[Rfam]
RNA sequence: GCGCCUGCAAGAGUAAAGGGCACGUGCUUUGGGACAGUGAGGAAAACAACGUUCAUAAAGACUGAUUACUUUUAACCCUUCAGGGAG
Numbered sequence: 001g002c003g004c005c006u007g008c009a010a011g012a013g014u015a016a017a018g019g020g021c022a023c024g025u026g027c028u029u030u031g032g033g034a035c036a037g038u039g040a041g042g043a044a045a046a047c048a049a050c051g052u053u054c055a056u057a058a059a060g061a062c063u064g065a066u067u068a069c070u071u072u073u074a075a076c077c078c079u080u081c082a083g084g085g086a087g
Base pairs, nucleotide, nucleotide: 002085004084005083006082007081009080010079011078013076014075015073016072017071018070019069026062027060028059029058030057031056032054033053034052035051
Shown here is an 87-nucleotide RNA from Phyllostomus discolor, a member of the family "mir-350 microRNA precursor family". Taxonomically the source falls in Phyllostomus (Eukaryota, Euteleostomi, Dipnotetrapodomorpha, Amniota).